The record is an 80-nucleotide RNA from Trifolium medium, which matches "MIR5269 microRNA precursor family" in Rfam.
RNA sequence: UUGGGUGAAAUCCAUGUGGGUUCCACAUAUUGGAAAUGAGUCCCACAUAAAGUGGUGGGACCCAUAUGGAUUUAGCCCAA
Dot-bracket structure: ((((((.(((((((((((....((((((.(((...............))).))).)))....))))))))))).))))))
Numbered sequence: 001u002u003g004g005g006u007g008a009a010a011u012c013c014a015u016g017u018g019g020g021u022u023c024c025a026c027a028u029a030u031u032g033g034a035a036a037u038g039a040g041u042c043c044c045a046c047a048u049a050a051a052g053u054g055g056u057g058g059g060a061c062c063c064a065u066a067u068g069g070a071u072u073u074a075g076c077c078c079a080a
Stems, first nucleotide, its partner, number of pairs: 001080006008073011023058003026054003030050003

Taxonomically the source falls in Trifolium (Eukaryota, Embryophyta, Tracheophyta, Papilionoideae). The match comes from Rfam's covariance-model search (62 bits).